The family of this 107-nucleotide RNA sequence from Bacillus pseudomycoides is "TPP riboswitch aptamer (THI element)".
RNA sequence: UCUAUCCACUAGGGGGGCCUUUUAUAGGCUGAGAUCAAAGGAUAUUUUUGAAACUCUUAGGACCUGAUCUGGGUAAUACCAGCGUAGGGAAGUGGAAGUGACAGAAG
Numbered sequence: 001u002c003u004a005u006c007c008a009c010u011a012g013g014g015g016g017g018c019c020u021u022u023u024a025u026a027g028g029c030u031g032a033g034a035u036c037a038a039a040g041g042a043u044a045u046u047u048u049u050g051a052a053a054c055u056c057u058u059a060g061g062a063c064c065u066g067a068u069c070u071g072g073g074u075a076a077u078a079c080c081a082g083c084g085u086a087g088g089g090a091a092g093u094g095g096a097a098g099u100g101a102c103a104g105a106a107g
Stems, first nucleotide, its partner, number of pairs: 006095005011057004017029004036050005063088004069082004
Pairs were carried over by alignment from the consensus structure, which is taken from published work.